[Rfam]
The record is a 174-nucleotide RNA, which matches "Clostridiales-1 RNA" in Rfam.

RNA sequence: AUGAUACCAGGGUCAAAAGGUCAGAAAGCUGAUGCAAGCUUGCUUGCAAGAGGAUUUUUGACCUUUUGACCCGACAAAAACAUGAGUAAGUAGCCAUUUUUCAAAGAAAAAUGAGCGGAUUACGAAUGUUUAUGAGGAUUGCGAGAGUGCAAAGCACGUAGCAAUCUGGUAUCA
Numbered sequence: 001a002u003g004a005u006a007c008c009a010g011g012g013u014c015a016a017a018a019g020g021u022c023a024g025a026a027a028g029c030u031g032a033u034g035c036a037a038g039c040u041u042g043c044u045u046g047c048a049a050g051a052g053g054a055u056u057u058u059u060g061a062c063c064u065u066u067u068g069a070c071c072c073g074a075c076a077a078a079a080a081c082a083u084g085a086g087u088a089a090g091u092a093g094c095c096a097u098u099u100u101u102c103a104a105a106g107a108a109a110a111a112u113g114a115g116c117g118g119a120u121u122a123c124g125a126a127u128g129u130u131u132a133u134g135a136g137g138a139u140u141g142c143g144a145g146a147g148u149g150c151a152a153a154g155c156a157c158g159u160a161g162c163a164a165u166c167u168g169g170u171a172u173c174a
Base pairs, nucleotide, nucleotide: 002174003173004172005171006170007169011071012070018064019063020062021061022060023059024057025056026055029052030051034047035046036045037044038043078131079130080129081128082127083126086123087122088121089120093116094115095113096112097111098110099109100108101107102106136167137166138165139164140163141162142161147157148156149155150154

It is annotated as a small RNA.